[Rfam]
RNA: FGF-1 internal ribosome entry site (IRES)
RNA sequence: GGACUCCGGGAGAAUAUGGGCAUCGCCUCUUUCCUUGCAGGACACUCCCUUCUGUUGGUGAAUGGGAACUCCCCUCCUCCUGCGGCUGCCGGCCUGCAGCAGCCCUGCUAGGACAGCCUGACGCUGCAGAAGCUUACACUGCCCCAGGAAGAAGGCGUCCCAGAUC
Numbered sequence: 001g002g003a004c005u006c007c008g009g010g011a012g013a014a015u016a017u018g019g020g021c022a023u024c025g026c027c028u029c030u031u032u033c034c035u036u037g038c039a040g041g042a043c044a045c046u047c048c049c050u051u052c053u054g055u056u057g058g059u060g061a062a063u064g065g066g067a068a069c070u071c072c073c074c075u076c077c078u079c080c081u082g083c084g085g086c087u088g089c090c091g092g093c094c095u096g097c098a099g100c101a102g103c104c105c106u107g108c109u110a111g112g113a114c115a116g117c118c119u120g121a122c123g124c125u126g127c128a129g130a131a132g133c134u135u136a137c138a139c140u141g142c143c144c145c146a147g148g149a150a151g152a153a154g155g156c157g158u159c160c161c162a163g164a165u166c
Stems, first nucleotide, its partner, number of pairs: 002166002005163001008161004015152001018049003026041003029037001051148003058079001060076002064073003084140002088133002094129007105120001